RNA: Selenocysteine insertion sequence 1
Organism: Danio rerio
RNA sequence: UGCACUUUAGUGAAGGCCUGACUGUAAACCACUCUCUGGCAUGUCAGGCCUGAAGAUCCUGUGUA
Numbered sequence: 001u002g003c004a005c006u007u008u009a010g011u012g013a014a015g016g017c018c019u020g021a022c023u024g025u026a027a028a029c030c031a032c033u034c035u036c037u038g039g040c041a042u043g044u045c046a047g048g049c050c051u052g053a054a055g056a057u058c059c060u061g062u063g064u065a
Base pairs, nucleotide, nucleotide: 001065002064003063004062005061015050016049017048018047019046020045021044022043029039030038031037